The record is a 141-nucleotide sequence from Xenorhabdus koppenhoeferi, which matches "Manganese Mn2+ riboswitch aptamer (yybP-ykoY)" in Rfam.
Pairs were carried over by alignment from the consensus structure.
Rfam's curators write: This RNA was originally discovered in E. coli during a large scale screen and was named SraF. The family was later found to exist upstream of related families of protein genes in many bacteria, including the the yybP and ykoK genes in B. subtilis. The specific functions of these proteins are unknown, but this structured RNA element may be involved in their genetic regulation as a riboswitch.
Gene Ontology term of the family: manganese ion binding.
The organism belongs to Xenorhabdus, within Bacteria.
[Rfam]
RNA sequence: CCGAUUCAGUCAUUGGGGAGUAGCCUGUUCCAGAAAAUUUCUGGAAAAUUCGUAUCAACAUACUCGUUUUAAAAUAAAACGUGGUACGAAUACCUGAAGAGUCUAAUUAAUGUAUAUCCAAUAAAUUUCUAAUUACAGCGU
Numbered sequence: 001c002c003g004a005u006u007c008a009g010u011c012a013u014u015g016g017g018g019a020g021u022a023g024c025c026u027g028u029u030c031c032a033g034a035a036a037a038u039u040u041c042u043g044g045a046a047a048a049u050u051c052g053u054a055u056c057a058a059c060a061u062a063c064u065c066g067u068u069u070u071a072a073a074a075u076a077a078a079a080c081g082u083g084g085u086a087c088g089a090a091u092a093c094c095u096g097a098a099g100a101g102u103c104u105a106a107u108u109a110a111u112g113u114a115u116a117u118c119c120a121a122u123a124a125a126u127u128u129c130u131a132a133u134u135a136c137a138g139c140g141u
Stems, first nucleotide, its partner, number of pairs: 028046003048091010065081005